Rfam assigns this 99-nucleotide sequence from Shouchella oshimensis to the family "SAM riboswitch aptamer (S box leader)". The match comes from Rfam's covariance-model search (86 bits).

[Rfam]
RNA sequence: AUCUUAUCAAGAGAGACGGAGGGAUAUGGCCCUGUGAAGUCUCAGCAACCAGCCUUAUAGGCAAGGUGCUAAAUCCAGCAGUAAUCUGCAAGAUAAGAG
Numbered sequence: 001a002u003c004u005u006a007u008c009a010a011g012a013g014a015g016a017c018g019g020a021g022g023g024a025u026a027u028g029g030c031c032c033u034g035u036g037a038a039g040u041c042u043c044a045g046c047a048a049c050c051a052g053c054c055u056u057a058u059a060g061g062c063a064a065g066g067u068g069c070u071a072a073a074u075c076c077a078g079c080a081g082u083a084a085u086c087u088g089c090a091a092g093a094u095a096a097g098a099g
Stems, first nucleotide, its partner, number of pairs: 002098007013043005021032003027077003044070004049066002052062004074091001079088003